A member of the RNA family "tRNA" from Rhizobacter sp. AJA081-3, 73 nucleotides long. It is annotated as a transfer RNA. The family's consensus secondary structure is taken from published work. Gene Ontology term of the family: triplet codon-amino acid adaptor activity.
RNA sequence: GCCGAGAUAGCUCAGCAGGUAGAGCGGCGCGUUGAAAGCGCGUGCGUCGGGGGAUCGAAGCCCUCUCUUGGCA
Number, nucleotide and partner (000 for none) at each position: 001g072002c071003c070004g069005a068006g067007a066008u000009a000010g025011c024012u023013c022014a000015g000016c000017a000018g000019g000020u000021a000022g013023a012024g011025c010026g000027g043028c042029g041030c040031g039032u000033u000034g000035a000036a000037a000038g000039c031040g030041c029042g028043u027044g000045c000046g000047u000048c000049g065050g064051g063052g062053g061054a000055u000056c000057g000058a000059a000060g000061c053062c052063c051064u050065c049066u007067c006068u005069u004070g003071g002072c001073a000
From the family's description: Transfer RNA (tRNA) molecules are approximately 80 nucleotides in length. Their secondary structure includes four short double-helical elements and three loops (D, anti-codon, and T loops). Further hydrogen bonds mediate the characteristic L-shaped molecular structure. tRNAs have two regions of fundamental functional importance: the anti-codon, which is responsible for specific mRNA codon recognition, and the 3' end, to which the tRNAs corresponding amino acid is attached (by aminoacyl-tRNA synthetases). tRNAs cope with the degeneracy of the genetic code in two manners: having more than one tRNA (with a specific anti-codon) for a particular amino acid; and 'wobble' base-pairing, i.e. permitting non-standard base-pairing at the 3rd anti-codon position.
The organism belongs to Rhizobacter, within Bacteria.